[Rfam]
RNA sequence: GUGGAAAGAAAGGAGCUUCCUUCAGUCCAGUUCGAGGCAGGUUGAGGGCUGGUAACUCAGCUGCUGACUCGGUUAUUCAAGAACUCAUCAUGUCACAAACAAAGAAGAGAUCAGAGAGAGCAUGCAGCGAUGUGUUCUUGAUUGACCGAAGCAGGAGCUGUUUUCAGUCGUUACUGUCACGCCUUGGACUGAAGGGAGCUCCCUAUUAUUAUUCC
Numbered sequence: 001g002u003g004g005a006a007a008g009a010a011a012g013g014a015g016c017u018u019c020c021u022u023c024a025g026u027c028c029a030g031u032u033c034g035a036g037g038c039a040g041g042u043u044g045a046g047g048g049c050u051g052g053u054a055a056c057u058c059a060g061c062u063g064c065u066g067a068c069u070c071g072g073u074u075a076u077u078c079a080a081g082a083a084c085u086c087a088u089c090a091u092g093u094c095a096c097a098a099a100c101a102a103a104g105a106a107g108a109g110a111u112c113a114g115a116g117a118g119a120g121c122a123u124g125c126a127g128c129g130a131u132g133u134g135u136u137c138u139u140g141a142u143u144g145a146c147c148g149a150a151g152c153a154g155g156a157g158c159u160g161u162u163u164u165c166a167g168u169c170g171u172u173a174c175u176g177u178c179a180c181g182c183c184u185u186g187g188a189c190u191g192a193a194g195g196g197a198g199c200u201c202c203c204u205a206u207u208a209u210u211a212u213u214c215c
Stems, first nucleotide, its partner, number of pairs: 013201008023191007036178001061157002064154003070148004078140007
This 215-nucleotide sequence from Rhododendron simsii belongs to the Rfam family "MIR159 microRNA precursor family".
For this family Rfam cites "Computational identification of plant microRNAs and their targets, including a stress-induced miRNA" (Jones-Rhoades and Bartel, Mol Cell, 2004).
It scores 110 bits against the family's covariance model.